[Rfam]
RNA sequence: UGAAUAUGAUGAGUUCCACUUCAUGGUCCGUGUUUCUGAACCCAGUGAUAAUAAUGGAAGUUCUGAUUUA
Numbered sequence: 001u002g003a004a005u006a007u008g009a010u011g012a013g014u015u016c017c018a019c020u021u022c023a024u025g026g027u028c029c030g031u032g033u034u035u036c037u038g039a040a041c042c043c044a045g046u047g048a049u050a051a052u053a054a055u056g057g058a059a060g061u062u063c064u065g066a067u068u069u070a
Base pairs, nucleotide, nucleotide: 001070002069003068004067

Annotation
The family of this 70-nucleotide RNA is "Small nucleolar RNA SNORD18". Pairs were carried over by alignment from the consensus structure, which was predicted with PFOLD. It is annotated as a C/D-box small nucleolar RNA. Rfam links the family to the GO terms RNA processing and nucleolus.